Rfam assigns this 382-nucleotide part of an RNA from Trichoderma citrinoviride to the family "Ascomycota telomerase RNA".
[Rfam]
RNA sequence: AAACAAACUGAAGGGGGUUCCUUGGGCCACAUCUUGAACAUCUGGGCUGCGACGCGCUACUCGGACUUUGGACCCGAUGGUUUCGAUGAAAGCGGCAGAUCUAUUAUAGGAUUGGCUGCGGACAUUGGCUCGCUUUUGACACCGCAGGGACGAUUUGACAUCGAGCUGGCGCGGAACCGGGACCCAUCUCGAGUUGGAGUCAAAGUUCAGUACUUGUCCGGUUCCCUGCCCGGCUUGGUUUUUGAGUCUAAUCCGCGGUCUGUCAUCCCUUGGGUCAUUCUUUGACCACCAUUGGAUCAUAAGGACAAGCCAUAGAUUUGGAGGGCAGUCCUGGUUGUCCUUCUCCCAGGAAUGGCUGGAGGACAACCCCCCACCGGCGAGG
Numbered sequence: 001a002a003a004c005a006a007a008c009u010g011a012a013g014g015g016g017g018u019u020c021c022u023u024g025g026g027c028c029a030c031a032u033c034u035u036g037a038a039c040a041u042c043u044g045g046g047c048u049g050c051g052a053c054g055c056g057c058u059a060c061u062c063g064g065a066c067u068u069u070g071g072a073c074c075c076g077a078u079g080g081u082u083u084c085g086a087u088g089a090a091a092g093c094g095g096c097a098g099a100u101c102u103a104u105u106a107u108a109g110g111a112u113u114g115g116c117u118g119c120g121g122a123c124a125u126u127g128g129c130u131c132g133c134u135u136u137u138g139a140c141a142c143c144g145c146a147g148g149g150a151c152g153a154u155u156u157g158a159c160a161u162c163g164a165g166c167u168g169g170c171g172c173g174g175a176a177c178c179g180g181g182a183c184c185c186a187u188c189u190c191g192a193g194u195u196g197g198a199g200u201c202a203a204a205g206u207u208c209a210g211u212a213c214u215u216g217u218c219c220g221g222u223u224c225c226c227u228g229c230c231c232g233g234c235u236u237g238g239u240u241u242u243u244g245a246g247u248c249u250a251a252u253c254c255g256c257g258g259u260c261u262g263u264c265a266u267c268c269c270u271u272g273g274g275u276c277a278u279u280c281u282u283u284g285a286c287c288a289c290c291a292u293u294g295g296a297u298c299a300u301a302a303g304g305a306c307a308a309g310c311c312a313u314a315g316a317u318u319u320g321g322a323g324g325g326c327a328g329u330c331c332u333g334g335u336u337g338u339c340c341u342u343c344u345c346c347c348a349g350g351a352a353u354g355g356c357u358g359g360a361g362g363a364c365a366a367c368c369c370c371c372c373a374c375c376g377g378c379g380a381g382g
Stems, first nucleotide, its partner, number of pairs: 181201003184197003203215004
The family is grouped with related families in Rfam's "Telomerase clan".